Selenocysteine transfer RNA: an 88-nucleotide RNA from Polysphondylium violaceum. The family's consensus secondary structure is taken from published work. It scores 55 bits against the family's covariance model. On this family, see Mizutani and Goto, FEBS Lett 2000: "Eukaryotic selenocysteine tRNA has the 9/4 secondary structure". The organism belongs to Polysphondylium, within Eukaryota.

RNA sequence: GCUGGGAUGAGCCGAUGUCUGGGGACAGGUGUAGACUUCAAAUCUAUAGCCCACGAAAGUGGGAGGGGUUCGAUUCCUCCUUCUCAGU
Numbered sequence: 001g002c003u004g005g006g007a008u009g010a011g012c013c014g015a016u017g018u019c020u021g022g023g024g025a026c027a028g029g030u031g032u033a034g035a036c037u038u039c040a041a042a043u044c045u046a047u048a049g050c051c052c053a054c055g056a057a058a059g060u061g062g063g064a065g066g067g068g069u070u071c072g073a074u075u076c077c078u079c080c081u082u083c084u085c086a087g088u
Stems, first nucleotide, its partner, number of pairs: 001088007009080001012029002016027004030048006050063005065079004